The record is an 82-nucleotide RNA from Phtheirospermum japonicum, which matches "Small nucleolar RNA snoR14" in Rfam. Pairs were carried over by alignment from the consensus structure. It is annotated as a C/D-box small nucleolar RNA. Its Rfam clan is "SNORD110 clan". The family has 7 seed sequences and 668 matches in Rfam 15.1. The match comes from Rfam's covariance-model search (65 bits).

RNA sequence: GCGAUGUGACGAAGCAAUUCAAGGUAUGCAAUACACUGAUUAUGUGUGAUGUUAAUAAUGAAUCCCGACAGGUUCCGAUCGC
Numbered sequence: 001g002c003g004a005u006g007u008g009a010c011g012a013a014g015c016a017a018u019u020c021a022a023g024g025u026a027u028g029c030a031a032u033a034c035a036c037u038g039a040u041u042a043u044g045u046g047u048g049a050u051g052u053u054a055a056u057a058a059u060g061a062a063u064c065c066c067g068a069c070a071g072g073u074u075c076c077g078a079u080c081g082c
Stems, first nucleotide, its partner, number of pairs: 001082004